RNA sequence: UCUUCAUUUCACACACUUUCUCGCUUCUCUGACCGGCGAGAGAGCAUGUAAAAUGAAGAGA
Numbered sequence: 001u002c003u004u005c006a007u008u009u010c011a012c013a014c015a016c017u018u019u020c021u022c023g024c025u026u027c028u029c030u031g032a033c034c035g036g037c038g039a040g041a042g043a044g045c046a047u048g049u050a051a052a053a054u055g056a057a058g059a060g061a
Stems, first nucleotide, its partner, number of pairs: 001059007012048002016044002019041004
This 61-nucleotide sequence from Pristionchus pacificus belongs to the Rfam family "mir-8364 microRNA precursor family". A search with the family's covariance model found it, with a score of 69 bits. Rfam links the family to the GO terms RISC complex and miRNA-mediated post-transcriptional gene silencing. Rfam 15.1 lists 3,320 matches to the family in 2 species.